[Rfam]
RNA sequence: AAGAAAUGGGGGUUUCUUGCAGUCCAAAACAGAUUGAAAGUAGAAGUUAUCUUGCUUUUGGUUUUGGACUGAAGGGAGCUCCUAAUUCUU
Numbered sequence: 001a002a003g004a005a006a007u008g009g010g011g012g013u014u015u016c017u018u019g020c021a022g023u024c025c026a027a028a029a030c031a032g033a034u035u036g037a038a039a040g041u042a043g044a045a046g047u048u049a050u051c052u053u054g055c056u057u058u059u060g061g062u063u064u065u066g067g068a069c070u071g072a073a074g075g076g077a078g079c080u081c082c083u084a085a086u087u088c089u090u
Stems, first nucleotide, its partner, number of pairs: 007084012021070002024067005

Shown here is a 90-nucleotide RNA sequence from Tripterygium wilfordii, a member of the family "MIR319 microRNA precursor family". Gene Ontology terms of the family: RISC complex and miRNA-mediated post-transcriptional gene silencing. A search with the family's covariance model found it, with a score of 80 bits. NCBI's taxonomy places the organism under Eukaryota, Spermatophyta, fabids, Celastrales, Tripterygium. The family has 11 seed sequences and 168 matches in Rfam 15.1.